[Rfam]
RNA sequence: UGCUUACUACUGGUAGUGAGUCUCUAAGAAAAGAGGAGGCAGUUGAUUUCCUCCUCUUUUCUUAGAGAUUCACUACCAGUAAUAAGA
Number, nucleotide and partner (000 for none) at each position: 001u000002g000003c086004u085005u084006a083007c000008u081009a080010c000011u078012g077013g076014u075015a074016g073017u072018g071019a070020g069021u068022c067023u066024c065025u000026a063027a062028g061029a060030a059031a058032a057033g056034a055035g054036g053037a052038g051039g050040c000041a048042g047043u000044u000045g000046a000047u042048u041049u000050c039051c038052u037053c036054c035055u034056c033057u032058u031059u030060u029061c028062u027063u026064a000065g024066a023067g022068a021069u020070u019071c018072a017073c016074u015075a014076c013077c012078a011079g000080u009081a008082a000083u006084a005085a004086g003087a000
Record summary:
This 87-nucleotide RNA sequence from Aotus nancymaae belongs to the Rfam family "mir-627 microRNA precursor family". The organism belongs to Aotus, within Eukaryota. Gene Ontology terms of the family: miRNA-mediated post-transcriptional gene silencing and RISC complex. The base pairs follow the family's consensus structure, which was predicted with RNAalifold.